Description:
Rfam assigns this 169-nucleotide sequence from Anopheles darlingi to the family "U4atac minor spliceosomal RNA". The match comes from Rfam's covariance-model search (73 bits). Gene Ontology terms of the family: spliceosomal tri-snRNP complex assembly, U4atac snRNP and mRNA 5'-splice site recognition. The literature on the family includes a 2005 paper in RNA by Lorkovic et al., "Evolutionary conservation of minor U12-type spliceosome between plants and humans". It is annotated as a spliceosomal small nuclear RNA.
RNA sequence: UCCUUCCUUGUCUUGGGGAGCAGAAUGUCCAGUGAACGUCUAGUGAGGGCAUUGAUGCUGACAAACCCAUUACGAAAGGACGCGCAUCUUCGGGUGUGCCGUUCCUUGAGCCCCCGGCUGCCGGAUCGCUUUCGAACAGCUGGUCUGUGCGGUCGGAAUUUUUGAAGCA
Numbered sequence: 001u002c003c004u005u006c007c008u009u010g011u012c013u014u015g016g017g018g019a020g021c022a023g024a025a026u027g028u029c030c031a032g033u034g035a036a037c038g039u040c041u042a043g044u045g046a047g048g049g050c051a052u053u054g055a056u057g058c059u060g061a062c063a064a065a066c067c068c069a070u071u072a073c074g075a076a077a078g079g080a081c082g083c084g085c086a087u088c089u090u091c092g093g094g095u096g097u098g099c100c101g102u103u104c105c106u107u108g109a110g111c112c113c114c115c116g117g118c119u120g121c122c123g124g125a126u127c128g129c130u131u132u133c134g135a136a137c138a139g140c141u142g143g144u145c146u147g148u149g150c151g152g153u154c155g156g157a158a159u160u161u162u163u164g165a166a167g168c169a
Stems, first nucleotide, its partner, number of pairs: 005019005020058003024053007036044002114156006122147006
Rfam describes the family as follows. U4atac is an essential component of the minor U12-type spliceosome complex which is required for removal of the rarer class of eukaryotic introns (AT-AC, U12-type).